[Rfam]
RNA sequence: CCUCCGCCCUCCCCGCACAGGAGGACGGACCGAGGCCACGGCGUUCUCUGCCCUGACUACGCCCGACGCCUCACCGGUCGGCCCCACCGGGCCGGAGGGGACCGCACACCCCGCCGGCCGCGGCGCCGACGGCAGCUCCGGGCUGCGGUGCUGGAGGGGUUGAGGGUCCCCUCCCGGCAC
Numbered sequence: 001c002c003u004c005c006g007c008c009c010u011c012c013c014c015g016c017a018c019a020g021g022a023g024g025a026c027g028g029a030c031c032g033a034g035g036c037c038a039c040g041g042c043g044u045u046c047u048c049u050g051c052c053c054u055g056a057c058u059a060c061g062c063c064c065g066a067c068g069c070c071u072c073a074c075c076g077g078u079c080g081g082c083c084c085c086a087c088c089g090g091g092c093c094g095g096a097g098g099g100g101a102c103c104g105c106a107c108a109c110c111c112c113g114c115c116g117g118c119c120g121c122g123g124c125g126c127c128g129a130c131g132g133c134a135g136c137u138c139c140g141g142g143c144u145g146c147g148g149u150g151c152u153g154g155a156g157g158g159g160u161u162g163a164g165g166g167u168c169c170c171c172u173c174c175c176g177g178c179a180c
Stems, first nucleotide, its partner, number of pairs: 003029004008024005032072005039065003043060002045056002078129005084123001088120003135149003139145002153174007
Rfam assigns this 180-nucleotide RNA sequence from Actinacidiphila guanduensis to the family "Streptomyces sRNA scr5239". For this family Rfam cites "Identification of metE as a second target of the sRNA scr5239 in Streptomyces coelicolor" (Vockenhuber et al., PLoS One, 2015). The match comes from Rfam's covariance-model search (97 bits). Rfam links the family to the GO terms mRNA binding and negative regulation of translation.